[Rfam]
RNA: malK-I RNA
RNA sequence: AUCUGUCCGCUCCGGCACUCCACAUUCUGCCGAGAGCGGGACGAAAAAAGGAGGAGAACCCCGCCUGGCUCGCGGUGCGGCAGUGUGGAGACCUGCCGUAAUGCAUCCGCGCUUCGCGCGCCGAUGUGAGGUCCGGGCAAGCGGAGGCUCCCGGAUCAGAGCCGGUAGCAUGGCA
Numbered sequence: 001a002u003c004u005g006u007c008c009g010c011u012c013c014g015g016c017a018c019u020c021c022a023c024a025u026u027c028u029g030c031c032g033a034g035a036g037c038g039g040g041a042c043g044a045a046a047a048a049a050g051g052a053g054g055a056g057a058a059c060c061c062c063g064c065c066u067g068g069c070u071c072g073c074g075g076u077g078c079g080g081c082a083g084u085g086u087g088g089a090g091a092c093c094u095g096c097c098g099u100a101a102u103g104c105a106u107c108c109g110c111g112c113u114u115c116g117c118g119c120g121c122c123g124a125u126g127u128g129a130g131g132u133c134c135g136g137g138c139a140a141g142c143g144g145a146g147g148c149u150c151c152c153g154g155a156u157c158a159g160a161g162c163c164g165g166u167a168g169c170a171u172g173g174c175a
Base pairs, nucleotide, nucleotide: 006040007039008038009037010036011034013032014031015030016029017028061075062074063073064072065165066164067163068162069161070160071159076100077099078098079097080096081095082094083093085092086091103127104126105125106124107123109121110120111119130157131156132155133154134153135152136151137150140149141148142147